Rfam assigns this 118-nucleotide RNA from Cynara cardunculus to the family "U5 spliceosomal RNA". Rfam describes the family as follows. U5 RNA is a component of both types of known spliceosome. The precise function of this molecule is unknown, though it is known that the 5' loop is required for splice site selection and p220 binding, and that both the 3' stem-loop and the Sm site are important for Sm protein binding and cap methylation. The family's consensus secondary structure is taken from published work.

RNA sequence: AGCCAUGUGAUGAGCACAAAGCGAACUAUUCUUUCGCCUUUUACUAAAGAAUACCGUGUGUUCGUUACUAUAAGUGGCAUACGCCUAUUUUUGGAGAGCUUUUUGUUUUUGGAAUGCC
Numbered sequence: 001a002g003c004c005a006u007g008u009g010a011u012g013a014g015c016a017c018a019a020a021g022c023g024a025a026c027u028a029u030u031c032u033u034u035c036g037c038c039u040u041u042u043a044c045u046a047a048a049g050a051a052u053a054c055c056g057u058g059u060g061u062u063c064g065u066u067a068c069u070a071u072a073a074g075u076g077g078c079a080u081a082c083g084c085c086u087a088u089u090u091u092u093g094g095a096g097a098g099c100u101u102u103u104u105g106u107u108u109u110u111g112g113a114a115u116g117c118c
Stems, first nucleotide, its partner, number of pairs: 003077004008067011027053008098117002101114002
A search with the family's covariance model found it, with a score of 86 bits.